[Rfam]
The record is a 117-nucleotide sequence from Gymnodraco acuticeps, which matches "Small nucleolar RNA SNORA84" in Rfam. Rfam 15.1 lists 757 matches to the family in 629 species. The base pairs follow the family's consensus structure, which was predicted with WAR.
RNA sequence: GCCUUGUGGUUCCUAGAGUCAGCUGUCAGUGCUGAACUGUGGGUUUUUAAAACAGUGAUUUGAUGCAUGGAUUCUGCUCCUCAUGCAGCCUUCCAUAGCCCGGUUGCGGAUACAAUG
Numbered sequence: 001g002c003c004u005u006g007u008g009g010u011u012c013c014u015a016g017a018g019u020c021a022g023c024u025g026u027c028a029g030u031g032c033u034g035a036a037c038u039g040u041g042g043g044u045u046u047u048u049a050a051a052a053c054a055g056u057g058a059u060u061u062g063a064u065g066c067a068u069g070g071a072u073u074c075u076g077c078u079c080c081u082c083a084u085g086c087a088g089c090c091u092u093c094c095a096u097a098g099c100c101c102g103g104u105u106g107c108g109g110a111u112a113c114a115a116u117g
Stems, first nucleotide, its partner, number of pairs: 008047001012043004017038001019035005053109001055107006065099002067096004074088004